[Rfam]
RNA sequence: AUGCUGUGAUGACCUCCAACUUGGUUUCGCUUUUUUUCUGAAUGCCAGUGAAGACAUUUCUCUUGGCUGUCUGAGCAU
Number, nucleotide and partner (000 for none) at each position: 001a078002u077003g076004c075005u000006g000007u000008g000009a000010u000011g000012a000013c000014c000015u000016c000017c000018a000019a000020c000021u000022u000023g000024g000025u000026u000027u000028c000029g000030c000031u000032u000033u000034u000035u000036u000037u000038c000039u000040g000041a000042a000043u000044g000045c000046c000047a000048g000049u000050g000051a000052a000053g000054a000055c000056a000057u000058u000059u000060c000061u000062c000063u000064u000065g000066g000067c000068u000069g000070u000071c000072u000073g000074a000075g004076c003077a002078u001
Rfam assigns this 78-nucleotide sequence from Nothocercus julius to the family "Small nucleolar RNA SNORD53/SNORD92". The organism belongs to Nothocercus, within Eukaryota. A reference for the family is Kiss-Laszlo et al. (1996), "Site-specific ribose methylation of preribosomal RNA: a novel function for small nucleolar RNAs", Cell. Its family is annotated with nucleolus and RNA processing in the Gene Ontology. Pairs were carried over by alignment from the consensus structure.